Rfam assigns this 144-nucleotide RNA from Castor canadensis to the family "U1 spliceosomal RNA".
RNA sequence: GUACUUACCUGGCUGGGGUGGUUUUCCCAGGGCGAGGCUCAUCCACUGUGCUCCAGAUGUGCUGACCCCUGUGAUUUCAACAAAUGUGGGAAACUCAACUGCAUAAUUUGUGGUAGUGGGAGACUGUGUUCACACUCUUCCCUG
Numbered sequence: 001g002u003a004c005u006u007a008c009c010u011g012g013c014u015g016g017g018g019u020g021g022u023u024u025u026c027c028c029a030g031g032g033c034g035a036g037g038c039u040c041a042u043c044c045a046c047u048g049u050g051c052u053c054c055a056g057a058u059g060u061g062c063u064g065a066c067c068c069c070u071g072u073g074a075u076u077u078c079a080a081c082a083a084a085u086g087u088g089g090g091a092a093a094c095u096c097a098a099c100u101g102c103a104u105a106a107u108u109u110g111u112g113g114u115a116g117u118g119g120g121a122g123a124c125u126g127u128g129u130u131c132a133c134a135c136u137c138u139u140c141c142c143u144g
Stems, first nucleotide, its partner, number of pairs: 012102002015099001016028003020024001029070004034066001036063003040059004072097003075093001076091002080087001118142004123138001126135003
The literature on the family includes a 1990 paper in Proc Natl Acad Sci U S A by Kretzner et al., "Saccharomyces cerevisiae U1 small nuclear RNA secondary structure contains both universal and yeast-specific domains".
It is annotated as a spliceosomal small nuclear RNA.
Taxonomically the source falls in Castor (Eukaryota, Opisthokonta, Dipnotetrapodomorpha, Euarchontoglires).
About the family: U1 is a small nuclear RNA (snRNA) component of the spliceosome (involved in pre-mRNA splicing). Its 5' end forms complementary base pairs with the 5' splice junction, thus defining the 5' donor site of an intron. There are significant differences in sequence and secondary structure between metazoan and yeast U1 snRNAs, the latter being much longer (568 nucleotides as compared to 164 nucleotides in human).